Record summary: The record is an 80-nucleotide RNA from Staphylococcus phage qdsa001, which matches "RAGATH-18 RNA" in Rfam. Rfam's curators write: Actinobacteria, Firmicutes, Fusobacteria, Thermotogae (1 example). Pairs were carried over by alignment from the consensus structure, which is taken from published work. By type it is a small RNA.
RNA sequence: CCUUUGGAGUAUUAUAACAAACCUUAGUAGAGUAAAUGAAUAUAGUAAUUUACUCAAAAAGGGAUACGUUGAAAAAGGAA
Numbered sequence: 001c002c003u004u005u006g007g008a009g010u011a012u013u014a015u016a017a018c019a020a021a022c023c024u025u026a027g028u029a030g031a032g033u034a035a036a037u038g039a040a041u042a043u044a045g046u047a048a049u050u051u052a053c054u055c056a057a058a059a060a061g062g063g064a065u066a067c068g069u070u071g072a073a074a075a076a077g078g079a080a
Stems, first nucleotide, its partner, number of pairs: 001078005009067005022062003030055003035051002